[Rfam]
The family of this 60-nucleotide sequence from Salmo salar is "mir-199 microRNA precursor family". The sequence is in the family's curated seed alignment. The base pairs follow the family's consensus structure, which was predicted with RNAalifold. The literature on the family includes a 2002 paper in Genes Dev by Mourelatos et al., "miRNPs: a novel class of ribonucleoproteins containing numerous microRNAs". Its family is annotated with RISC complex and miRNA-mediated post-transcriptional gene silencing in the Gene Ontology.
RNA sequence: CCCAGUGUUCAGACUACCUGUUCAGGAAGUAGUGGUUGCACAGUAGUCUGCACAUUGGUU
Numbered sequence: 001c002c003c004a005g006u007g008u009u010c011a012g013a014c015u016a017c018c019u020g021u022u023c024a025g026g027a028a029g030u031a032g033u034g035g036u037u038g039c040a041c042a043g044u045a046g047u048c049u050g051c052a053c054a055u056u057g058g059u060u
Stems, first nucleotide, its partner, number of pairs: 002058007010050007018043004023038002